[Rfam]
RNA sequence: GCACAUUCUCAGGGCGGGGUGAAAUUCCCCACCGGCGGUAAAUUCAACUUGAAUAAGCCCGCGAGCGCCUAAUCAAUUUAUUUAAAAUAUUAGGGUCAGCAGAUCUGGUUAAACUCCAGAGCCGACGGUCAUAGUCCGGAUGAGAGAGAAUAAAA
Numbered sequence: 001g002c003a004c005a006u007u008c009u010c011a012g013g014g015c016g017g018g019g020u021g022a023a024a025u026u027c028c029c030c031a032c033c034g035g036c037g038g039u040a041a042a043u044u045c046a047a048c049u050u051g052a053a054u055a056a057g058c059c060c061g062c063g064a065g066c067g068c069c070u071a072a073u074c075a076a077u078u079u080a081u082u083u084a085a086a087a088u089a090u091u092a093g094g095g096u097c098a099g100c101a102g103a104u105c106u107g108g109u110u111a112a113a114c115u116c117c118a119g120a121g122c123c124g125a126c127g128g129u130c131a132u133a134g135u136c137c138g139g140a141u142g143a144g145a146g147a148g149a150a151u152a153a154a155a
Stems, first nucleotide, its partner, number of pairs: 005151006017029003031135002033124002035062004057122002065100002104120005126138003
Dot-bracket structure: ....((((((......(((.......))).[[((((((..................[[))))..((................................))...(((((.......)))))]])).(((.....]]))).......))))))....
FMN riboswitch aptamer (RFN element): a 155-nucleotide RNA from Pseudoalteromonas denitrificans. The family's consensus secondary structure is taken from published work. Lineage of the source: Bacteria > Pseudomonadati > Alteromonadales > Pseudoalteromonas > Pseudoalteromonas denitrificans. The RFN element is a highly conserved domain that is found frequently in the 5'-untranslated regions of prokaryotic mRNAs that encode for flavin mononucleotide (FMN) biosynthesis and transport proteins. This element is a metabolite-dependent riboswitch that directly binds FMN in the absence of proteins. In Bacillus subtilis, the riboswitch most likely controls gene expression by causing premature transcription termination within the 5' untranslated region of the ribDEAHT operon and precluding access to the ribosome-binding site of ypaA mRNA.The FMN riboswitch structure, reported in present an FMN-bound six-stem junction, adopts a butterfly-like scaffold, stapled together by opposingly directed but nearly identically folded peripheral domains.